[Rfam]
RNA sequence: AAGUCGGCAAGUCAGAUCCGUAACUUCGGGAUAAGGAUUGGCUCUAAGGGCUGGGUCGGUCGGGCUGGGGUGCGAAGCGGGGCUGGGCUCGCGCCGCGGCUGGGGGAGCAGUCGCCCCGUCGCCCUCCUCUCUCCGCCGCCGGAAGCGCGGUGCGCGGCCCGCCUCGCGGGGCUCGCGUCUGCGGCGCCUCGCGCGUCGUACGGCGUGGGUUUUCGCGGGGCGGUGUCCGCCGCCGCGUGGAAGGCGGGCCGGCGGGGGAUGCGGUCGGCGGUGGCUGGCGGCGACUCUGGACGCGCGCCGGGCCCUUCUCGCGGAUCACCUCAGCUGCGGUGCCCGUCGGGGUCCCCUUCGCGGGGGCUCCCCGGCGGGUCGCCUCGGCUGGCGCCUAGCAGCUGACUUAGAACUGGUGCGGACCAG
Numbered sequence: 001a002a003g004u005c006g007g008c009a010a011g012u013c014a015g016a017u018c019c020g021u022a023a024c025u026u027c028g029g030g031a032u033a034a035g036g037a038u039u040g041g042c043u044c045u046a047a048g049g050g051c052u053g054g055g056u057c058g059g060u061c062g063g064g065c066u067g068g069g070g071u072g073c074g075a076a077g078c079g080g081g082g083c084u085g086g087g088c089u090c091g092c093g094c095c096g097c098g099g100c101u102g103g104g105g106g107a108g109c110a111g112u113c114g115c116c117c118c119g120u121c122g123c124c125c126u127c128c129u130c131u132c133u134c135c136g137c138c139g140c141c142g143g144a145a146g147c148g149c150g151g152u153g154c155g156c157g158g159c160c161c162g163c164c165u166c167g168c169g170g171g172g173c174u175c176g177c178g179u180c181u182g183c184g185g186c187g188c189c190u191c192g193c194g195c196g197u198c199g200u201a202c203g204g205c206g207u208g209g210g211u212u213u214u215c216g217c218g219g220g221g222c223g224g225u226g227u228c229c230g231c232c233g234c235c236g237c238g239u240g241g242a243a244g245g246c247g248g249g250c251c252g253g254c255g256g257g258g259g260a261u262g263c264g265g266u267c268g269g270c271g272g273u274g275g276c277u278g279g280c281g282g283c284g285a286c287u288c289u290g291g292a293c294g295c296g297c298g299c300c301g302g303g304c305c306c307u308u309c310u311c312g313c314g315g316a317u318c319a320c321c322u323c324a325g326c327u328g329c330g331g332u333g334c335c336c337g338u339c340g341g342g343g344u345c346c347c348c349u350u351c352g353c354g355g356g357g358g359c360u361c362c363c364c365g366g367c368g369g370g371u372c373g374c375c376u377c378g379g380c381u382g383g384c385g386c387c388u389a390g391c392a393g394c395u396g397a398c399u400u401a402g403a404a405c406u407g408g409u410g411c412g413g414a415c416c417a418g
Base pairs, nucleotide, nucleotide: 015039016038017037018036019035024029040406041405043403044402045401046400047399048398049395050394051393052392053391055384056383057382058381059380060379061378062377063376064180066178069175070174077168078167079166080165081164082163083162085160086159088157090155091154092153093152094151095150096149097148098147100143101142102141103140105138106137407411
The record is a 418-nucleotide part of an RNA from Oreochromis niloticus, which matches "Eukaryotic large subunit ribosomal RNA" in Rfam. A search with the family's covariance model found it, with a score of 2912 bits. Pairs were carried over by alignment from the consensus structure, which is taken from published work. Lineage of the source: Eukaryota > Eumetazoa > Neopterygii > Neoteleostei > Oreochromis.